Molybdenum/Tungsten riboswitch aptamer (Moco RNA motif): a 159-nucleotide RNA from Kosakonia cowanii.
[Rfam]
RNA sequence: ACGAAGAGGAUACACUCAAGCCUCUGCACCUGUGUCUUAAGGAUCGUUAACUAAAGAUAUGGUGCUUUGGCCGUAGCAGAGCAAUAGCUCUCGCUGCCAGGGUGCAGGAAGAAAUGACUGCAUCUCCCGAAUCUGGAAAGGUGUACAUGGCCUCACAAC
Numbered sequence: 001a002c003g004a005a006g007a008g009g010a011u012a013c014a015c016u017c018a019a020g021c022c023u024c025u026g027c028a029c030c031u032g033u034g035u036c037u038u039a040a041g042g043a044u045c046g047u048u049a050a051c052u053a054a055a056g057a058u059a060u061g062g063u064g065c066u067u068u069g070g071c072c073g074u075a076g077c078a079g080a081g082c083a084a085u086a087g088c089u090c091u092c093g094c095u096g097c098c099a100g101g102g103u104g105c106a107g108g109a110a111g112a113a114a115u116g117a118c119u120g121c122a123u124c125u126c127c128c129g130a131a132u133c134u135g136g137a138a139a140g141g142u143g144u145a146c147a148u149g150g151c152c153u154c155a156c157a158a159c
Stems, first nucleotide, its partner, number of pairs: 003153001011145005017140001020071003026065005034058004073097005100125008110115001126136002

A reference for the family is Weinberg et al. (2007), "Identification of 22 candidate structured RNAs in bacteria using the CMfinder comparative genomics pipeline", Nucleic Acids Res. The family has 160 seed sequences and 1,248 matches in Rfam 15.1.